[Rfam]
Nucleotides: 105
Base pairs, nucleotide, nucleotide: 007100008099009098011096012095013094014093015092
Number, partner (000 for none) and nucleotide at each position: 001000g002000c003000u004000g005000g006000g007100a008099a009098c010000a011096g012095c013094c014093u015092c016000g017000c018000g019000u020000g021000a022000u023000g024000a025000c026000c027000c028000u029000u030000c031000u032000c033000u034000c035000u036000c037000u038000g039000a040000c041000g042000g043000c044000u045000g046000c047000g048000g049000u050000g051000g052000u053000g054000a055000u056000g057000a058000u059000c060000c061000u062000c063000a064000a065000a066000c067000c068000a069000a070000a071000g072000c073000c074000u075000c076000u077000a078000a079000g080000a081000a082000g083000u084000u085000g086000a087000c088000u089000g090000a091000c092015g093014a094013g095012g096011c097000a098009g099008u100007u101000c102000u103000u104000g105000g
About this RNA
Small nucleolar RNA SNORD125: a 105-nucleotide RNA sequence from Pterocles gutturalis. A reference for the family is Yang et al. (2006), "snoSeeker: an advanced computational package for screening of guide and orphan snoRNA genes in the human genome", Nucleic Acids Res. The family has 16 seed sequences and 526 matches in Rfam 15.1. NCBI's taxonomy places the organism under Eukaryota, Bilateria, Chordata, Craniata, Pterocles. The family's consensus secondary structure was predicted with WAR.